[Rfam]
RNA sequence: UGUCUCCUCUAUUCCCUCAACGGAAAUAGAUUCAGCCCGCUCCUUGUAGCGGGCUUUUUUUU
Numbered sequence: 001u002g003u004c005u006c007c008u009c010u011a012u013u014c015c016c017u018c019a020a021c022g023g024a025a026a027u028a029g030a031u032u033c034a035g036c037c038c039g040c041u042c043c044u045u046g047u048a049g050c051g052g053g054c055u056u057u058u059u060u061u062u
Stems, first nucleotide, its partner, number of pairs: 008030006034055008